[Rfam]
A member of the RNA family "mir-1788 microRNA precursor family" from Scophthalmus maximus, 77 nucleotides long. Rfam 15.1 lists 504 matches to the family in 475 species. Its family is annotated with RISC complex and miRNA-mediated post-transcriptional gene silencing in the Gene Ontology. The match comes from Rfam's covariance-model search (83 bits). NCBI's taxonomy places the organism under Eukaryota, Euteleostomi, Euteleosteomorpha, Carangaria, Scophthalmus.
RNA sequence: CAGCUUUCGAGGCUUGUUUUAAGUUGCCUGCGCCUUUUUACUCGGACACAGGCAGCUAAAGCAAGUCUGGGACGCCA
Numbered sequence: 001c002a003g004c005u006u007u008c009g010a011g012g013c014u015u016g017u018u019u020u021a022a023g024u025u026g027c028c029u030g031c032g033c034c035u036u037u038u039u040a041c042u043c044g045g046a047c048a049c050a051g052g053c054a055g056c057u058a059a060a061g062c063a064a065g066u067c068u069g070g071g072a073c074g075c076c077a
Base pairs, nucleotide, nucleotide: 003075004074006072007071008070010068011067012066013065014064015063016062017061018060019059020058022057023056024055025054026053027052028051029050030049032047